[Rfam]
RNA sequence: GGAGGGCUGGCUGAGCGGCCGAAAGCGACGGUCUUGAAAACCGUUAGUGCGGUGACCCCGUACUCAAGGGUUCGAAUCCCUUGCCCUCCG
Dot-bracket structure: (((((((..(((...........))).(((((.......))))).....................(((((.......)))))))))))).